[Rfam]
RNA sequence: CCCGGUCCUCGGUAGUGGCCUUCCGACCGCCUGCCCCACGCGGGUGCGGUCGGCAGGCCUCGAUCGAAGACCGAC
Numbered sequence: 001c002c003c004g005g006u007c008c009u010c011g012g013u014a015g016u017g018g019c020c021u022u023c024c025g026a027c028c029g030c031c032u033g034c035c036c037c038a039c040g041c042g043g044g045u046g047c048g049g050u051c052g053g054c055a056g057g058c059c060u061c062g063a064u065c066g067a068a069g070a071c072c073g074a075c
Stems, first nucleotide, its partner, number of pairs: 003073005009067005017059005023053007
RNA: Actino-pnp RNA